[Rfam]
RNA sequence: UGAGGCCUGACUCAAUGAUCCGUACCCUCCUCCUACCUGGUCUACUACUCAACGCAUAUUUAUGCGCGGUAGACUUGUGGGCGGAAUGAAUCACUGAUUCAGGCUUGCAAACUAAAAAACCCGCGCUACUGCGCGGGUUUUUUU
Numbered sequence: 001u002g003a004g005g006c007c008u009g010a011c012u013c014a015a016u017g018a019u020c021c022g023u024a025c026c027c028u029c030c031u032c033c034u035a036c037c038u039g040g041u042c043u044a045c046u047a048c049u050c051a052a053c054g055c056a057u058a059u060u061u062a063u064g065c066g067c068g069g070u071a072g073a074c075u076u077g078u079g080g081g082c083g084g085a086a087u088g089a090a091u092c093a094c095u096g097a098u099u100c101a102g103g104c105u106u107g108c109a110a111a112c113u114a115a116a117a118a119a120c121c122c123g124c125g126c127u128a129c130u131g132c133g134c135g136g137g138u139u140u141u142u143u144u
Stems, first nucleotide, its partner, number of pairs: 004105001006103005012097003016093003025084002028081003032077001045072005053066004116141011
Shown here is a 144-nucleotide RNA sequence from Erwinia sp. 198, a member of the family "Leucine operon leader". The base pairs follow the family's consensus structure, which is taken from published work. At least 6 amino acid operons are known to be regulated by attenuation. In each a leader sequence of 150-200 bp is found upstream of the first gene in the operon. This leader sequence can assume two different secondary structures known as the terminator and the anti-terminator structure. In each case the leader also codes for very short peptide sequence that is rich in the end product amino acid of the operon. The terminator structure is recognised as a termination signal for RNA polymerase and the operon is not transcribed. This structure forms when the cell has an excess of the regulatory amino acid and ribosome movement over the leader transcript is not impeded. When there is a deficiency of the charged tRNA of the regulatory amino acid the ribosome translating the leader peptide stalls and the antiterminator structure can form. This allows RNA polymerase to transcribe the operon. In the Rfam alignment the consensus structure is of the terminator. The alternative consensus structure is the antiterminator structure.